[Rfam]
RNA sequence: AGCCUUAUAUAUGAGAUAUAAGGGAAAGGAAUUGUUGUCAAUACCUGAAAGAGCUCUUUCAGAUAUGACUGG
Numbered sequence: 001a002g003c004c005u006u007a008u009a010u011a012u013g014a015g016a017u018a019u020a021a022g023g024g025a026a027a028g029g030a031a032u033u034g035u036u037g038u039c040a041a042u043a044c045c046u047g048a049a050a051g052a053g054c055u056c057u058u059u060c061a062g063a064u065a066u067g068a069c070u071g072g
Stems, first nucleotide, its partner, number of pairs: 003023008054067001057065001